[Rfam]
RNA: MIR8565 microRNA precursor family
RNA sequence: CCCCCACCAAUGUGUAUAGGAUCCCAAAGGAUCACUAUUAAAUUUGGCGUGGAUCUCUAGAAAAAUUGUCACAUGAGUGUGGGACUUGACUUUUUUUAGAGAUCCAUGCUAAAUUUAAUGGUGAUCCUUUGGGGUCCUACACAUAUGGGUGGGGG
Numbered sequence: 001c002c003c004c005c006a007c008c009a010a011u012g013u014g015u016a017u018a019g020g021a022u023c024c025c026a027a028a029g030g031a032u033c034a035c036u037a038u039u040a041a042a043u044u045u046g047g048c049g050u051g052g053a054u055c056u057c058u059a060g061a062a063a064a065a066u067u068g069u070c071a072c073a074u075g076a077g078u079g080u081g082g083g084a085c086u087u088g089a090c091u092u093u094u095u096u097u098a099g100a101g102a103u104c105c106a107u108g109c110u111a112a113a114u115u116u117a118a119u120g121g122u123g124a125u126c127c128u129u130u131g132g133g134g135u136c137c138u139a140c141a142c143a144u145a146u147g148g149g150u151g152g153g154g155g
Stems, first nucleotide, its partner, number of pairs: 002154007010146004015141001017139012030126003034122032066089003069082005